[Rfam]
RNA sequence: AACUUUAAAAAGCAAACUUAUUAAAAGAUAAGGACGCAAAGCCGCGAGUCUAAGGCGCAUGCUAUGAUUGUCGGGUUGCUGUA
Numbered sequence: 001a002a003c004u005u006u007a008a009a010a011a012g013c014a015a016a017c018u019u020a021u022u023a024a025a026a027g028a029u030a031a032g033g034a035c036g037c038a039a040a041g042c043c044g045c046g047a048g049u050c051u052a053a054g055g056c057g058c059a060u061g062c063u064a065u066g067a068u069u070g071u072c073g074g075g076u077u078g079c080u081g082u083a
Stems, first nucleotide, its partner, number of pairs: 012037002017032006040077004045073003048068003055062002
RNA: c-di-GMP-I riboswitch aptamer
Organism: Anaerocolumna chitinilytica